[Rfam]
RNA sequence: CUGCAACCAAUUAAGCCGACCAGUUUCCUCUCGUGGUGGACCCUGGUGUGCAAUGGCUGCAGACAGCAACCUCCUGGGUAGUGUACGCAACCUAUUCCUUGUAUAGGUUGCUCUAAGGGACCUAGGAGACAAAU
Numbered sequence: 001c002u003g004c005a006a007c008c009a010a011u012u013a014a015g016c017c018g019a020c021c022a023g024u025u026u027c028c029u030c031u032c033g034u035g036g037u038g039g040a041c042c043c044u045g046g047u048g049u050g051c052a053a054u055g056g057c058u059g060c061a062g063a064c065a066g067c068a069a070c071c072u073c074c075u076g077g078g079u080a081g082u083g084u085a086c087g088c089a090a091c092c093u094a095u096u097c098c099u100u101g102u103a104u105a106g107g108u109u110g111c112u113c114u115a116a117g118g119g120a121c122c123u124a125g126g127a128g129a130c131a132a133a134u
Stems, first nucleotide, its partner, number of pairs: 002052004019047004026040003077122003088110006
Small nucleolar RNA SNORA70: a 134-nucleotide RNA from Cricetulus griseus. From the family's description: snoRNA U70 seems to be exclusive to mammals and is a member of the H/ACA class of snoRNA which contain H (ANANNA) and ACA box motifs. H/ACA box snoRNAs are involved in the conversion of uridines to pseudouridines (5-ribosyluracil) a constituent of structural RNAs (transfer, ribosomal, small nuclear, and small nucleolar). A reference for the family is Charette and Gray (2000), "Pseudouridine in RNA: what, where, how, and why", IUBMB Life. NCBI's taxonomy places the organism under Eukaryota, Opisthokonta, Craniata, Myomorpha, Cricetulus.